[Rfam]
RNA sequence: UAAUCGGCCCUUUUCAGGGCCACCAAAUAUUAAAACGUUGGAAUAAU
Numbered sequence: 001u002a003a004u005c006g007g008c009c010c011u012u013u014u015c016a017g018g019g020c021c022a023c024c025a026a027a028u029a030u031u032a033a034a035a036c037g038u039u040g041g042a043a044u045a046a047u
Stems, first nucleotide, its partner, number of pairs: 006021006
RNA: Histone 3' UTR stem-loop
Organism: Trichomalopsis sarcophagae